[Rfam]
RNA sequence: GUGUUCCUAGAGUUCCCUUGACCACUUCAUUAGGGAUUACUUCGUUGUUUGAUGCUCUGCUGAAGUGUUUGGGGGAACUCCUGGGCUCAC
Numbered sequence: 001g002u003g004u005u006c007c008u009a010g011a012g013u014u015c016c017c018u019u020g021a022c023c024a025c026u027u028c029a030u031u032a033g034g035g036a037u038u039a040c041u042u043c044g045u046u047g048u049u050u051g052a053u054g055c056u057c058u059g060c061u062g063a064a065g066u067g068u069u070u071g072g073g074g075g076a077a078c079u080c081c082u083g084g085g086c087u088c089a090c
Base pairs, nucleotide, nucleotide: 006084007083010080011079012078013077014076015075016074017073018072019071021070023067024066025065026064027063028062029061031059032058033057034056
RNA: mir-395 microRNA precursor family